[Rfam]
RNA: Plastid-psbN 5UTR RNA
Organism: Helianthus annuus
RNA sequence: UUCGACGCCCAUCAAAGGGGUCGUUCCCCACCCCAGAGCUACUUCACCAUAUUCAGAAUUC
Numbered sequence: 001u002u003c004g005a006c007g008c009c010c011a012u013c014a015a016a017g018g019g020g021u022c023g024u025u026c027c028c029c030a031c032c033c034c035a036g037a038g039c040u041a042c043u044u045c046a047c048c049a050u051a052u053u054c055a056g057a058a059u060u061c
Stems, first nucleotide, its partner, number of pairs: 017045005023039004